[Rfam]
Description:
This 83-nucleotide sequence belongs to the Rfam family "S15-Methanomicrobia ribosomal protein leader".
RNA sequence: GGCACUGCUCCGUGACAAACAGGUGCUGACUGAAGUAAGUCCGACGUGUUUCAAUGACACUGCCCUUGAGGCUUUGGGAUUAC
Numbered sequence: 001g002g003c004a005c006u007g008c009u010c011c012g013u014g015a016c017a018a019a020c021a022g023g024u025g026c027u028g029a030c031u032g033a034a035g036u037a038a039g040u041c042c043g044a045c046g047u048g049u050u051u052c053a054a055u056g057a058c059a060c061u062g063c064c065c066u067u068g069a070g071g072c073u074u075u076g077g078g079a080u081u082a083c
Stems, first nucleotide, its partner, number of pairs: 001027006035083004041078002046060005062072003

Clan: Ribosomal Protein S15 Leader clan.